[Rfam]
RNA: TPP riboswitch aptamer (THI element)
Organism: Peptacetobacter hiranonis
RNA sequence: UAUCGAUGCUAGGGGCGCUGAAAUAAGGUCAGCUGAGAGAGAAAGCCAAAAACUUACAAACCCUAAACACCUGAUCAAGAUAAUGCUUGCGAAGGGAAGCUGGUAGAAAAUUUU
Numbered sequence: 001u002a003u004c005g006a007u008g009c010u011a012g013g014g015g016c017g018c019u020g021a022a023a024u025a026a027g028g029u030c031a032g033c034u035g036a037g038a039g040a041g042a043a044a045g046c047c048a049a050a051a052a053c054u055u056a057c058a059a060a061c062c063c064u065a066a067a068c069a070c071c072u073g074a075u076c077a078a079g080a081u082a083a084u085g086c087u088u089g090c091g092a093a094g095g096g097a098a099g100c101u102g103g104u105a106g107a108a109a110a111u112u113u114u
Stems, first nucleotide, its partner, number of pairs: 008100003011064004017033005041057001043055002070095003076089004